The family of this 82-nucleotide sequence from Xenopus tropicalis is "mir-181 microRNA precursor family". Pairs were carried over by alignment from the consensus structure, which was predicted with PFOLD. It is one of the family's seed sequences. The organism belongs to Silurana, within Eukaryota. The literature on the family includes a 2001 paper in Cell by Ambros, "microRNAs: tiny regulators with great potential". Rfam links the family to the GO terms miRNA-mediated post-transcriptional gene silencing and RISC complex.
RNA sequence: AGGUCACAAUCAACAUUCAUUGCUGUCGGUGGGUUGAGUUAAGAACACAAGCUCGCUGAACGAUGAAUGCAACUGUGUCCCC
Numbered sequence: 001a002g003g004u005c006a007c008a009a010u011c012a013a014c015a016u017u018c019a020u021u022g023c024u025g026u027c028g029g030u031g032g033g034u035u036g037a038g039u040u041a042a043g044a045a046c047a048c049a050a051g052c053u054c055g056c057u058g059a060a061c062g063a064u065g066a067a068u069g070c071a072a073c074u075g076u077g078u079c080c081c082c
Base pairs, nucleotide, nucleotide: 002081003080005077006076007075008074014069015068016067017066018065019064020063021062022061026059027058028057029056030055031054033052034051035050